This 107-nucleotide RNA from Phyllostomus discolor belongs to the Rfam family "mir-448 microRNA precursor family". Taxonomically the source falls in Phyllostomus (Eukaryota, Mammalia, Laurasiatheria, Phyllostomidae).
RNA sequence: GCAGGGAGGGUGAACAUCCUACAUAGUGCUGCCAGGAAAUCCCUAUUUUAUACUUAGACUGGCUGGUUGCAUAUGUAGGAUGUCCCAUCUCCCUGCCCACUUCAUCA
Numbered sequence: 001g002c003a004g005g006g007a008g009g010g011u012g013a014a015c016a017u018c019c020u021a022c023a024u025a026g027u028g029c030u031g032c033c034a035g036g037a038a039a040u041c042c043c044u045a046u047u048u049u050a051u052a053c054u055u056a057g058a059c060u061g062g063c064u065g066g067u068u069g070c071a072u073a074u075g076u077a078g079g080a081u082g083u084c085c086c087a088u089c090u091c092c093c094u095g096c097c098c099a100c101u102u103c104a105u106c107a
Stems, first nucleotide, its partner, number of pairs: 004093006012085001014083012027071003031067005044058001046057002